[Rfam]
RNA sequence: AUGUACGAUGACUGUAAGUCACUUUGGAUAAAAGAAUCUGCUAAAUGGCAUAGU
Numbered sequence: 001a002u003g004u005a006c007g008a009u010g011a012c013u014g015u016a017a018g019u020c021a022c023u024u025u026g027g028a029u030a031a032a033a034g035a036a037u038c039u040g041c042u043a044a045a046u047g048g049c050a051u052a053g054u
Stems, first nucleotide, its partner, number of pairs: 013043001014041003022034004